[Rfam]
RNA sequence: AUAAAUUGCUAGGGGUGCCUUAUGGCUGAGAAAUGAACAAUUCAUUGACCCUUAUACCUGAACUGGAUAAUGCCAGCGUAGGAAAGCGUCUAUAUUAAAAU
Number, nucleotide and partner (000 for none) at each position: 001a000002u000003a000004a000005a000006u000007u088008g087009c086010u085011a052012g051013g050014g049015g000016u000017g026018c025019c024020u000021u000022a000023u000024g019025g018026c017027u000028g000029a000030g000031a000032a000033a045034u044035g043036a042037a041038c000039a000040a000041u037042u036043c035044a034045u033046u000047g000048a000049c014050c013051c012052u011053u000054a000055u000056a000057c082058c081059u080060g079061a000062a000063c076064u075065g074066g073067a000068u000069a000070a000071u000072g000073c066074c065075a064076g063077c000078g000079u060080a059081g058082g057083a000084a000085a010086g009087c008088g007089u000090c000091u000092a000093u000094a000095u000096u000097a000098a000099a000100a000101u000

The family of this 101-nucleotide sequence from Clostridium argentinense is "TPP riboswitch aptamer (THI element)".
The source organism's lineage runs through Bacteria, Bacillati, Bacillota, Clostridiaceae and Clostridium argentinense.